[Rfam]
RNA sequence: UCGUUUCACCAGCCGAAUCCCCGGCGGACGUCGUCGGGGAGCGGGGGACCCAAUGGCCGGAACCAUCCGGUCACGGGGCGAGUCGUCGCCAGCGUGCGACGUAGCGCCACUCUCUUGGCGCGAGCCCGACAGCUAACCCCGUAGGCGCCGCCAAAGAGAGGGU
Numbered sequence: 001u002c003g004u005u006u007c008a009c010c011a012g013c014c015g016a017a018u019c020c021c022c023g024g025c026g027g028a029c030g031u032c033g034u035c036g037g038g039g040a041g042c043g044g045g046g047g048a049c050c051c052a053a054u055g056g057c058c059g060g061a062a063c064c065a066u067c068c069g070g071u072c073a074c075g076g077g078g079c080g081a082g083u084c085g086u087c088g089c090c091a092g093c094g095u096g097c098g099a100c101g102u103a104g105c106g107c108c109a110c111u112c113u114c115u116u117g118g119c120g121c122g123a124g125c126c127c128g129a130c131a132g133c134u135a136a137c138c139c140c141g142u143a144g145g146c147g148c149c150g151c152c153a154a155a156g157a158g159a160g161g162g163u
Base pairs, nucleotide, nucleotide: 012146013145014144018040019039020038021037022036023035024034025033026032027031041142042141043140044139045138046137051075076127077126078125084101085100086099087098088097089096104121105120106119107118
Background:
The record is a 163-nucleotide sequence from Baekduia soli, which matches "c-di-AMP riboswitch aptamer (ydaO/yuaA leader)" in Rfam. Its family is annotated with cyclic-di-AMP binding and regulation of gene expression in the Gene Ontology. NCBI's taxonomy places the organism under Bacteria, Bacillati, Thermoleophilia, Solirubrobacterales, Baekduia.